The family of this 216-nucleotide sequence from Miscanthus lutarioriparius is "MIR6217 microRNA precursor family". The family's consensus secondary structure was predicted with RNAalifold.
[Rfam]
RNA sequence: UGGCUACAAAAUAACUUAUUAUAGUUACAAUAAUUGCUAUAUUAAUUUACGAGAUUAUAGUAACUCCAUACUAAGUGGUUUACUAUAACGUUAUGGUAAAUAUCUCCAUGUGUUAUAGUAACCCAACUAUCGUAAAUAUGUAUUGACAUUAUCGUAAAUUAGUAUAUAAAGUUAUCGUAAAUGGAGGUGGCUACGGAAUAACUUAUUUUGUAGCUG
Number, nucleotide and partner (000 for none) at each position: 001u216002g215003g214004c213005u212006a211007c210008a209009a208010a207011a206012u205013a204014a203015c000016u201017u200018a199019u198020u197021a000022u000023a000024g000025u180026u179027a178028c177029a000030a175031u174032a173033a172034u171035u170036g000037c000038u166039a165040u164041a163042u162043u161044a160045a159046u158047u157048u156049a155050c154051g000052a000053g153054a152055u151056u000057a149058u148059a000060g000061u000062a143063a000064c000065u000066c000067c000068a000069u134070a133071c132072u000073a000074a000075g130076u129077g128078g127079u126080u125081u120082a119083c118084u117085a116086u115087a114088a113089c112090g111091u110092u000093a000094u000095g105096g104097u000098a000099a000100a000101u000102a000103u000104c096105u095106c000107c000108a000109u000110g091111u090112g089113u088114u087115a086116u085117a084118g083119u082120a081121a000122c000123c000124c000125a080126a079127c078128u077129a076130u075131c000132g071133u070134a069135a000136a000137u000138a000139u000140g000141u000142a000143u062144u000145g000146a000147c000148a058149u057150u000151a055152u054153c053154g050155u049156a048157a047158a046159u045160u044161a043162g042163u041164a040165u039166a038167u000168a000169a000170a035171g034172u033173u032174a031175u030176c000177g028178u027179a026180a025181a000182u000183g000184g000185a000186g000187g000188u000189g000190g000191c000192u000193a000194c000195g000196g000197a020198a019199u018200a017201a016202c000203u014204u013205a012206u011207u010208u009209u008210g007211u006212a005213g004214c003215u002216g001